[Rfam]
RNA sequence: GUUCGUCGGGACCUUGGCUGUGGACUGCUUACUGCCACAUCUGCCUCAGAACCAGUAACAGUCCAGAGUCAUGGCUACCGAAGUCUG
Numbered sequence: 001g002u003u004c005g006u007c008g009g010g011a012c013c014u015u016g017g018c019u020g021u022g023g024a025c026u027g028c029u030u031a032c033u034g035c036c037a038c039a040u041c042u043g044c045c046u047c048a049g050a051a052c053c054a055g056u057a058a059c060a061g062u063c064c065a066g067a068g069u070c071a072u073g074g075c076u077a078c079c080g081a082a083g084u085c086u087g
Stems, first nucleotide, its partner, number of pairs: 012074002015071004023063005029058005
RNA: mir-132 microRNA precursor family